[Rfam]
RNA sequence: AAAACUACAUCAUAGGAGGUACAACAUGUACAAAAUUUUUAGUUUCGUUUCAUUAAUACUUAGUAUGCUAUGUUUUAUGGGCUUACAAGUUUUAAAUGUCAUUCAAAAAAAUGUCAUAUUAUUAUCACUAUUAGAUAGCGAAGAAUUUAAUGACAUUCACUUUUUCGGAAGUUUAUUGGUAAUA
Numbered sequence: 001a002a003a004a005c006u007a008c009a010u011c012a013u014a015g016g017a018g019g020u021a022c023a024a025c026a027u028g029u030a031c032a033a034a035a036u037u038u039u040u041a042g043u044u045u046c047g048u049u050u051c052a053u054u055a056a057u058a059c060u061u062a063g064u065a066u067g068c069u070a071u072g073u074u075u076u077a078u079g080g081g082c083u084u085a086c087a088a089g090u091u092u093u094a095a096a097u098g099u100c101a102u103u104c105a106a107a108a109a110a111a112u113g114u115c116a117u118a119u120u121a122u123u124a125u126c127a128c129u130a131u132u133a134g135a136u137a138g139c140g141a142a143g144a145a146u147u148u149a150a151u152g153a154c155a156u157u158c159a160c161u162u163u164u165u166c167g168g169a170a171g172u173u174u175a176u177u178g179g180u181a182a183u184a
Stems, first nucleotide, its partner, number of pairs: 009180004015158003019031004045153005053095004058090004063086003067082003096117003100113004122138005159172005
This 184-nucleotide sequence from Listeria monocytogenes belongs to the Rfam family "Listeria sRNA rli26". For this family Rfam cites "The Listeria transcriptional landscape from saprophytism to virulence" (Toledo-Arana et al., Nature, 2009). Rfam classes the family as a small RNA. The base pairs follow the family's consensus structure, which was predicted with RNAalifold.